[Rfam]
RNA sequence: GCGAGAUCACACGCCCGAGCCGGGUGUGCGAACGUUAAACUGACGGCGAAGUGCCAGGCGCAGCCCCGUGCCCUUCGACCAGAAUCAGCCAGCAGCCGCUGCAACCCCAGGGAG
Numbered sequence: 001g002c003g004a005g006a007u008c009a010c011a012c013g014c015c016c017g018a019g020c021c022g023g024g025u026g027u028g029c030g031a032a033c034g035u036u037a038a039a040c041u042g043a044c045g046g047c048g049a050a051g052u053g054c055c056a057g058g059c060g061c062a063g064c065c066c067c068g069u070g071c072c073c074u075u076c077g078a079c080c081a082g083a084a085u086c087a088g089c090c091a092g093c094a095g096c097c098g099c100u101g102c103a104a105c106c107c108c109a110g111g112g113a114g
Stems, first nucleotide, its partner, number of pairs: 048076004053071001055070002057067002090101004
RNA: Streptomyces-metK RNA
Organism: Actinacidiphila rubida